[Rfam]
RNA sequence: GCCAGUGUGAGCUUGACAGGUGUUGGGGCAGGCCUUCAAAGCCUGUGCGGGCCACAAGCCCGAAUGGAUCGAUACCAUCUCGCUGGC
Numbered sequence: 001g002c003c004a005g006u007g008u009g010a011g012c013u014u015g016a017c018a019g020g021u022g023u024u025g026g027g028g029c030a031g032g033c034c035u036u037c038a039a040a041g042c043c044u045g046u047g048c049g050g051g052c053c054a055c056a057a058g059c060c061c062g063a064a065u066g067g068a069u070c071g072a073u074a075c076c077a078u079c080u081c082g083c084u085g086g087c
Stems, first nucleotide, its partner, number of pairs: 001087007009079001012027006028046006048062005064078004

Record summary:
The record is an 87-nucleotide RNA sequence from Andalucia godoyi, which matches "Selenocysteine transfer RNA" in Rfam. It scores 68 bits against the family's covariance model. The family's consensus secondary structure is taken from published work.